A member of the RNA family "mir-995 microRNA precursor family" from Drosophila melanogaster, 88 nucleotides long. Rfam's curators put it in the seed alignment. Rfam links the family to the GO terms RISC complex and miRNA-mediated post-transcriptional gene silencing. A reference for the family is Kawamura et al. (2008), "Drosophila endogenous small RNAs bind to Argonaute 2 in somatic cells", Nature.
RNA sequence: CACCUGCACCCCGCAGCCCGAAUUAUGUGGGAGCUGCGCCGUUUCCGUAAUCCGUAGCACCACAUGAUUCGGCUUCGUGGUACAGGAU
Numbered sequence: 001c002a003c004c005u006g007c008a009c010c011c012c013g014c015a016g017c018c019c020g021a022a023u024u025a026u027g028u029g030g031g032a033g034c035u036g037c038g039c040c041g042u043u044u045c046c047g048u049a050a051u052c053c054g055u056a057g058c059a060c061c062a063c064a065u066g067a068u069u070c071g072g073c074u075u076c077g078u079g080g081u082a083c084a085g086g087a088u
Base pairs, nucleotide, nucleotide: 003086004085005084006083008081009080010079012077013076015074016073017072018071020070021069022068023067024066025065026064027063028062029061031060033058034057035056036055037054038053